This 77-nucleotide sequence from Daphnia magna belongs to the Rfam family "mir-87 microRNA precursor family". The family has 44 seed sequences and 420 matches in Rfam 15.1. Its family is annotated with RISC complex and miRNA-mediated post-transcriptional gene silencing in the Gene Ontology. On this family, see Sempere et al., Dev Biol 2003: "Temporal regulation of microRNA expression in Drosophila melanogaster mediated by hormonal signals and broad-Complex gene activity".
RNA sequence: CGCUCUCAGCCUGAUUCUUGCUCGACCUAUGCUUCUAUCAAUGGGCGAGGUGAGCAAAGUUUCAGGUGCGUAAGCGG
Numbered sequence: 001c002g003c004u005c006u007c008a009g010c011c012u013g014a015u016u017c018u019u020g021c022u023c024g025a026c027c028u029a030u031g032c033u034u035c036u037a038u039c040a041a042u043g044g045g046c047g048a049g050g051u052g053a054g055c056a057a058a059g060u061u062u063c064a065g066g067u068g069c070g071u072a073a074g075c076g077g
Base pairs, nucleotide, nucleotide: 002075003074004073007070009067010066011065012064013063014062016059018057019056021054022053023052024051026050027049028048